This 87-nucleotide RNA sequence from Gossypium raimondii belongs to the Rfam family "MIR7486 microRNA precursor family".
[Rfam]
RNA sequence: CAUGUCAGCGCGCUUUGCUGACGUGGCAGCAAAUCGCGUCCUAGAGGGCGCGAUUUGUUGCUAUAUCAGCAACUCGCGCUGACGUGG
Numbered sequence: 001c002a003u004g005u006c007a008g009c010g011c012g013c014u015u016u017g018c019u020g021a022c023g024u025g026g027c028a029g030c031a032a033a034u035c036g037c038g039u040c041c042u043a044g045a046g047g048g049c050g051c052g053a054u055u056u057g058u059u060g061c062u063a064u065a066u067c068a069g070c071a072a073c074u075c076g077c078g079c080u081g082a083c084g085u086g087g
Base pairs, nucleotide, nucleotide: 001086002085003084004083005082006081007080008079009078010077011076012075015072016071017070018069019068020067021066023064024063025062026061027060028059029058030057031056032055033054034053035052036051037050038049040047041046
NCBI's taxonomy places the organism under Eukaryota, Viridiplantae, eudicotyledons, rosids, Gossypium. Rfam 15.1 lists 10,132 matches to the family in 36 species.